This 126-nucleotide RNA sequence belongs to the Rfam family "SAM-I/IV (S-adenosyl methionine) riboswitch aptamer". Clan: SAM clan.

[Rfam]
RNA sequence: AGUUAAUAUCAAGAGCAGUUCAUAUUUAAGAACUCACCAACCGGGCUCAGAUCAAUCAGAGAAUCGGUGGUAUUAGCCUUAAUCGCUAGAUGUGCCCAGGAAAAUGGGAAAUGUAAAGCCGCAAUU
Numbered sequence: 001a002g003u004u005a006a007u008a009u010c011a012a013g014a015g016c017a018g019u020u021c022a023u024a025u026u027u028a029a030g031a032a033c034u035c036a037c038c039a040a041c042c043g044g045g046c047u048c049a050g051a052u053c054a055a056u057c058a059g060a061g062a063a064u065c066g067g068u069g070g071u072a073u074u075a076g077c078c079u080u081a082a083u084c085g086c087u088a089g090a091u092g093u094g095c096c097c098a099g100g101a102a103a104a105u106g107g108g109a110a111a112u113g114u115a116a117a118g119c120c121g122c123a124a125u126u
Stems, first nucleotide, its partner, number of pairs: 006093005015035001017034005036071003041067003095108004